[Rfam]
Description
A member of the RNA family "U5 spliceosomal RNA" from Sinocyclocheilus rhinocerous, 115 nucleotides long. The family's consensus secondary structure is taken from published work. The family's RNA type in Rfam is spliceosomal small nuclear RNA. From the family's description: U5 RNA is a component of both types of known spliceosome. A search with the family's covariance model found it, with a score of 81 bits.
RNA sequence: GCUCGAGUUUCUCUUCAUUAUCGCAUAAAUCUUUCGCCUUUUAUUAAAGAUUUCCGUGGAGGGGAGCUUUUUGCGACUAAUCUGUAUUUUUGGAGGCUCUGAUCAAAGCAGAGCU
Number, nucleotide and partner (000 for none) at each position: 001g000002c000003u076004c075005g074006a000007g067008u066009u065010u064011c063012u062013c061014u060015u059016c058017a057018u000019u000020a000021u000022c000023g000024c000025a000026u000027a053028a052029a051030u050031c049032u048033u047034u046035c000036g000037c000038c000039u000040u000041u000042u000043a000044u000045u000046a034047a033048a032049g031050a030051u029052u028053u027054c000055c000056g000057u017058g016059g015060a014061g013062g012063g011064g010065a009066g008067c007068u000069u000070u000071u000072u000073g000074c005075g004076a003077c000078u000079a000080a000081u000082c000083u000084g000085u000086a000087u000088u000089u000090u000091u000092g000093g000094a115095g000096g114097c113098u112099c111100u110101g109102a000103u000104c000105a000106a000107a000108g000109c101110a100111g099112a098113g097114c096115u094